[Rfam]
RNA sequence: GCCCUUCAAAUCGGGGGAGGAAGCGCCUAUAUUCCCCUCGUCGUCCUCGGACGACUAUGGCGAUAAACGGCUAUCGUAAUAAACCUUUCGGACCCGGGGGCGGUACCCGGCGCCUCCACCUCAACGCCGCGUGCGACGUUCAGGCGGGGGCGAAACAGGAUCGACGAGGGCGUAAAGGGUGGACUUUUGCUCGGCAUGAUACCACCGUUAUCGGGUCAAAAACGAUAGUUGCGAAUGACAACAAUCGCUCGGUUGCCUUGGCUGCGUAAGCAGUCUGGAAGACCAAACCAAAGUCCUCUGGGGUAGCACUUAGAGGCGGGGCACGGGGAACGCCUGGCAACAGAAGUUCCCCACU
Numbered sequence: 001g002c003c004c005u006u007c008a009a010a011u012c013g014g015g016g017g018a019g020g021a022a023g024c025g026c027c028u029a030u031a032u033u034c035c036c037c038u039c040g041u042c043g044u045c046c047u048c049g050g051a052c053g054a055c056u057a058u059g060g061c062g063a064u065a066a067a068c069g070g071c072u073a074u075c076g077u078a079a080u081a082a083a084c085c086u087u088u089c090g091g092a093c094c095c096g097g098g099g100g101c102g103g104u105a106c107c108c109g110g111c112g113c114c115u116c117c118a119c120c121u122c123a124a125c126g127c128c129g130c131g132u133g134c135g136a137c138g139u140u141c142a143g144g145c146g147g148g149g150g151c152g153a154a155a156c157a158g159g160a161u162c163g164a165c166g167a168g169g170g171c172g173u174a175a176a177g178g179g180u181g182g183a184c185u186u187u188u189g190c191u192c193g194g195c196a197u198g199a200u201a202c203c204a205c206c207g208u209u210a211u212c213g214g215g216u217c218a219a220a221a222a223c224g225a226u227a228g229u230u231g232c233g234a235a236u237g238a239c240a241a242c243a244a245u246c247g248c249u250c251g252g253u254u255g256c257c258u259u260g261g262c263u264g265c266g267u268a269a270g271c272a273g274u275c276u277g278g279a280a281g282a283c284c285a286a287a288c289c290a291a292a293g294u295c296c297u298c299u300g301g302g303g304u305a306g307c308a309c310u311u312a313g314a315g316g317c318g319g320g321g322c323a324c325g326g327g328g329a330a331c332g333c334c335u336g337g338c339a340a341c342a343g344a345a346g347u348u349c350c351c352c353a354c355u
Base pairs, nucleotide, nucleotide: 040055041054042053043052044051059191060190061189062188063187069184071182072181073180074179075178084170085169086168088167089166090165094110095109096108097107098106111152112151113150114149115148116147117146192207193206194205197218198217199216202214203213319335320334321333322332325352326351327350328349329348330347
Background:
Rfam assigns this 355-nucleotide RNA from Rhizobiales bacterium PAR1 to the family "Alphaproteobacteria transfer-messenger RNA". A search with the family's covariance model found it, with a score of 290 bits. A reference for the family is Williams and Bartel (1996), "Phylogenetic analysis of tmRNA secondary structure", RNA. Bacterial tmRNA, also known as 10Sa RNA or SsrA, is named for its dual tRNA and mRNA-like properties. Pairs were carried over by alignment from the consensus structure, which is taken from published work.